[Rfam]
RNA sequence: CCAUUCGUAAAAAUGGUUGUGCCAUGUUGUAUAAUCAUAUCACAGCCAUUUUUGACGAGUUGGG
Numbered sequence: 001c002c003a004u005u006c007g008u009a010a011a012a013a014u015g016g017u018u019g020u021g022c023c024a025u026g027u028u029g030u031a032u033a034a035u036c037a038u039a040u041c042a043c044a045g046c047c048a049u050u051u052u053u054g055a056c057g058a059g060u061u062g063g064g
Base pairs, nucleotide, nucleotide: 005058006057007056008055010053011052012051013050014048015047016046017045018044019043020042021041025039026038027037